[Rfam]
RNA sequence: GGUCGCGUAGCUCAGUAGGAUAGAGCACGAGCCUUCUAAGCUUGUGGUCAGAGGUUCGAAUCCUCUCGUGAUCG
Numbered sequence: 001g002g003u004c005g006c007g008u009a010g011c012u013c014a015g016u017a018g019g020a021u022a023g024a025g026c027a028c029g030a031g032c033c034u035u036c037u038a039a040g041c042u043u044g045u046g047g048u049c050a051g052a053g054g055u056u057c058g059a060a061u062c063c064u065c066u067c068g069u070g071a072u073c074g
Stems, first nucleotide, its partner, number of pairs: 001073007010026004028044005050066005
RNA: tRNA
Organism: Mesomycoplasma conjunctivae